[Rfam]
Purine riboswitch aptamer: a 102-nucleotide sequence from Oceanobacillus oncorhynchi. Lineage of the source: Bacteria > Bacillati > Bacilli > Bacillaceae > Oceanobacillus. From the family's description: Riboswitches are metabolite binding domains within certain messenger RNAs that serve as precision sensors for their corresponding targets. The base pairs follow the family's consensus structure, which is taken from published work.
RNA sequence: AACCCAAAAAUGAAUAUUUUUCAUAUAAUCGUGGGGAUACGGCCUGCAAGUUUCUACCGGUUUACCGUAAAUAAACUGACUAUGGAAAAGUAUUAAAAAGCU
Numbered sequence: 001a002a003c004c005c006a007a008a009a010a011u012g013a014a015u016a017u018u019u020u021u022c023a024u025a026u027a028a029u030c031g032u033g034g035g036g037a038u039a040c041g042g043c044c045u046g047c048a049a050g051u052u053u054c055u056a057c058c059g060g061u062u063u064a065c066c067g068u069a070a071a072u073a074a075a076c077u078g079a080c081u082a083u084g085g086a087a088a089a090g091u092a093u094u095a096a097a098a099a100g101c102u
Base pairs, nucleotide, nucleotide: 018088019087020086021085022084023083024082025081029049031047032046033045034044035043058078059077060076061075062074063073064072